[Rfam]
RNA sequence: AAGCUUGAAGAUGAAGAACUGAUCUCCUACAUUCUCUCGGGUCUAGACCGUGACUAUGAUGCGGUGGUCUCGGCGGUGGCAGCAUGCGUUGAACCAAUUUCGGUUGGGGAACUUCUUACCCAACUUACAAGUUUCGAGU
Number, nucleotide and partner (000 for none) at each position: 001a000002a000003g000004c138005u137006u136007g135008a134009a000010g000011a000012u000013g000014a000015a000016g000017a000018a000019c000020u000021g000022a000023u000024c000025u000026c000027c000028u000029a000030c000031a000032u000033u000034c000035u000036c000037u000038c000039g000040g000041g000042u000043c000044u000045a000046g000047a000048c000049c000050g000051u000052g000053a000054c000055u000056a000057u000058g000059a000060u000061g000062c000063g000064g000065u000066g000067g000068u000069c000070u000071c000072g000073g000074c000075g000076g000077u000078g000079g000080c000081a000082g000083c000084a000085u000086g000087c000088g000089u107090u106091g105092a104093a000094c000095c000096a000097a000098u000099u000100u000101c000102g000103g000104u092105u091106g090107g089108g000109g000110a000111a000112c000113u000114u000115c000116u000117u000118a000119c000120c000121c000122a000123a000124c000125u000126u000127a000128c000129a000130a000131g000132u000133u000134u008135c007136g006137a005138g004139u000

The family of this 139-nucleotide sequence from Miscanthus lutarioriparius is "Small nucleolar RNA Z247". By type it is a C/D-box small nucleolar RNA. A reference for the family is Chen et al. (2003), "The high diversity of snoRNAs in plants: identification and comparative study of 120 snoRNA genes from Oryza sativa", Nucleic Acids Res.